Rfam assigns this 79-nucleotide RNA from Acanthosepion pharaonis to the family "Mammalian CPEB3 ribozyme".

RNA sequence: AUUGGCAGUUGGGGUCCAUAGAAGGAGCAUUUACAUAGUGGUCCUUGUCAGAUGAGUUCUCUCAUUUGCCAGUCUUUCC
Numbered sequence: 001a002u003u004g005g006c007a008g009u010u011g012g013g014g015u016c017c018a019u020a021g022a023a024g025g026a027g028c029a030u031u032u033a034c035a036u037a038g039u040g041g042u043c044c045u046u047g048u049c050a051g052a053u054g055a056g057u058u059c060u061c062u063c064a065u066u067u068g069c070c071a072g073u074c075u076u077u078c079c
Base pairs, nucleotide, nucleotide: 012045013044014043016041017040021078022077023076024075025074026073027039028038049068050067051066052065053064054063055062